[Rfam]
Group II catalytic intron D1-D4-3: a 167-nucleotide RNA from Paraburkholderia steynii. About the family: Group II introns are found in rRNA, tRNA and mRNA of organelles in fungi, plants and protists, and also in mRNA in bacteria. The base pairs follow the family's consensus structure.
RNA sequence: GUCGUCGUGAGGCGAGGUCUGAAGGACGCGUAUAGCAGAGCCACGACUUCACGUACAGAAACCGGAUAUGAGGCCUACCAUGCCGGACGAGCAAGCACGUGAUUGCGAAGUCCAUGACCCUCAAGGGUCUGGGUGGUAGAUCUGGCGGGUGUGUGAAGGCGCUGUGC
Numbered sequence: 001g002u003c004g005u006c007g008u009g010a011g012g013c014g015a016g017g018u019c020u021g022a023a024g025g026a027c028g029c030g031u032a033u034a035g036c037a038g039a040g041c042c043a044c045g046a047c048u049u050c051a052c053g054u055a056c057a058g059a060a061a062c063c064g065g066a067u068a069u070g071a072g073g074c075c076u077a078c079c080a081u082g083c084c085g086g087a088c089g090a091g092c093a094a095g096c097a098c099g100u101g102a103u104u105g106c107g108a109a110g111u112c113c114a115u116g117a118c119c120c121u122c123a124a125g126g127g128u129c130u131g132g133g134u135g136g137u138a139g140a141u142c143u144g145g146c147g148g149g150u151g152u153g154u155g156a157a158g159g160c161g162c163u164g165u166g167c
Base pairs, nucleotide, nucleotide: 002015003014004013005012006011028167029166030165031164032163035160036159040154044153045152046150047149048148049147062145063144064143065142066141067140073137074136075135078132079131080130082128083127085113086112087111088110091106092105093104094103
Dot-bracket structure: .(((((....)))))............(((((..((...(...((((((............((((((.....(((..(((.((.((((..((((........))))...)))).............)).)))..)))..)))))).)))).)))....))..)))))